[Rfam]
RNA sequence: GGCUGGUCUGAGCACAGUGGUGUUUACAGCUGAUUGAUCACAACCCGUUACAGAUUUCUUUGUUCCUUCUUGACUCCCACUGCUUCACUUGACUAGCCGUAA
Number, nucleotide and partner (000 for none) at each position: 001g098002g097003c096004u095005g094006g093007u092008c091009u000010g090011a089012g000013c000014a000015c000016a081017g080018u079019g078020g077021u000022g076023u000024u000025u000026a000027c000028a064029g063030c062031u000032g060033a059034u000035u000036g000037a000038u000039c000040a000041c000042a000043a000044c000045c000046c000047g000048u000049u000050a000051c000052a000053g000054a000055u000056u000057u000058c000059u033060u032061u000062g030063u029064u028065c000066c000067u000068u000069c000070u000071u000072g000073a000074c000075u000076c022077c020078c019079a018080c017081u016082g000083c000084u000085u000086c000087a000088c000089u011090u010091g008092a007093c006094u005095a004096g003097c002098c001099g000100u000101a000102a000
RNA: Y RNA